The record is a 46-nucleotide RNA sequence from Sporosarcina luteola, which matches "PreQ1 (pre queuosine) riboswitch aptamer" in Rfam. Rfam describes the family as follows. This family is a bacterial riboswitch that binds to the metabolite preQ1, an intermediate in the biosynthesis of the modified nucleoside queuosine from GTP. One example of this riboswitch is located in the leader of the Bacillus subtilis ykvJKLM (queCDEF) operon which encodes four genes necessary for queuosine production. The family has 43 seed sequences and 873 matches in Rfam 15.1. Rfam links the family to the GO term queuosine biosynthetic process. A reference for the family is Reader et al. (2004), "Identification of four genes necessary for biosynthesis of the modified nucleoside queuosine", J Biol Chem. Taxonomically the source falls in Sporosarcina (Bacteria, Bacillota, Caryophanales, Caryophanaceae).

RNA sequence: UGCCACGUGGUUCGCAAACCUCCCACGUAAAAAAAACUAAGGAGAA
Numbered sequence: 001u002g003c004c005a006c007g008u009g010g011u012u013c014g015c016a017a018a019c020c021u022c023c024c025a026c027g028u029a030a031a032a033a034a035a036a037c038u039a040a041g042g043a044g045a046a
Stems, first nucleotide, its partner, number of pairs: 006027005016038001